[Rfam]
RNA: Mammalian CPEB3 ribozyme
RNA sequence: AGGGGGUGGGCGGGGCAGCAAACAGAGGAGGGUCCACGUCCCCUGCCCUGGGAGAUUCUUAUGUGUUUGUAAGAAUCUGCGAAUGCCUCU
Numbered sequence: 001a002g003g004g005g006g007u008g009g010g011c012g013g014g015g016c017a018g019c020a021a022a023c024a025g026a027g028g029a030g031g032g033u034c035c036a037c038g039u040c041c042c043c044u045g046c047c048c049u050g051g052g053a054g055a056u057u058c059u060u061a062u063g064u065g066u067u068u069g070u071a072a073g074a075a076u077c078u079g080c081g082a083a084u085g086c087c088u089c090u
Base pairs, nucleotide, nucleotide: 013048014047015046016045017044018043021090025086029084030042031041032040053078054077055076056075057074058073059072060071061070062069063068